This 106-nucleotide RNA from Pipistrellus kuhlii belongs to the Rfam family "mir-2968 microRNA precursor family". Its family is annotated with miRNA-mediated post-transcriptional gene silencing and RISC complex in the Gene Ontology. NCBI's taxonomy places the organism under Eukaryota, Deuterostomia, Vertebrata, Yangochiroptera, Pipistrellus. Pairs were carried over by alignment from the consensus structure, which is taken from published work.
[Rfam]
Nucleotides: 106
Stems, first nucleotide, its partner, number of pairs: 001106003006097004010090002013087001015085002018083001021080001022078003026074008036065005043058005
Number, partner (000 for none) and nucleotide at each position: 001106g002105c003104u004000g005000c006097c007096c008095u009094g010090c011089g012000a013087c014000a015085g016084c017000g018083u019000g020000u021080c022078c023077u024076c025000c026074a027073g028072g029071u030070c031069g032068c033067u034000c035000u036065g037064g038063c039062a040061g041000c042000c043058c044057u045056c046055g047054u048000c049000g050000u051000u052000g053000a054047g055046c056045g057044a058043g059000u060000u061040c062039u063038g064037c065036u066000u067033g068032g069031c070030g071029a072028c073027c074026u075000u076024g077023g078022g079000c080021g081000c082000c083018a084016g085015c086000a087013g088000c089011u090010g091000c092000a093000c094009c095008a096007g097006g098000u099000c100000g101000g102000c103000g104003a105002g106001c